small nucleolar RNA snoR25: a 70-nucleotide sequence from Plasmodium ovale. Rfam classes the family as a C/D-box small nucleolar RNA. The pairing is the family consensus, mapped onto this sequence. The organism belongs to Plasmodium ovale, within Eukaryota.

RNA sequence: UUUUAAUGAUGAAAAUAACAGACCUGAUUUGAAAAAAAAUUUGAGAAUAUUUUUUCUACUUCUGAAAAAA
Numbered sequence: 001u002u003u004u005a006a007u008g009a010u011g012a013a014a015a016u017a018a019c020a021g022a023c024c025u026g027a028u029u030u031g032a033a034a035a036a037a038a039a040u041u042u043g044a045g046a047a048u049a050u051u052u053u054u055u056c057u058a059c060u061u062c063u064g065a066a067a068a069a070a
Stems, first nucleotide, its partner, number of pairs: 001069004